Shown here is a 65-nucleotide RNA from Anabarilius grahami, a member of the family "Small nucleolar RNA SNORD42". Rfam describes the family as follows. snoRNA U42 is found in intron 3 of the ribosomal protein L23a (RPL23a) gene in humans and is also present in mice. Rfam 15.1 lists 848 matches to the family in 572 species. For this family Rfam cites "Purified box C/D snoRNPs are able to reproduce site-specific 2'-O-methylation of target RNA in vitro" (Galardi et al., Mol Cell Biol, 2002).
RNA sequence: GUGCAAUGAUGUAAAGAUAAUCAUUACUCUGAAACAUGAUGUUCUCAAAGGAACCACUGAUGCAC
Numbered sequence: 001g002u003g004c005a006a007u008g009a010u011g012u013a014a015a016g017a018u019a020a021u022c023a024u025u026a027c028u029c030u031g032a033a034a035c036a037u038g039a040u041g042u043u044c045u046c047a048a049a050g051g052a053a054c055c056a057c058u059g060a061u062g063c064a065c
Base pairs, nucleotide, nucleotide: 001065002064003063004062005061
Background:
Pairs were carried over by alignment from the consensus structure, which was predicted with PFOLD. By type it is a C/D-box small nucleolar RNA.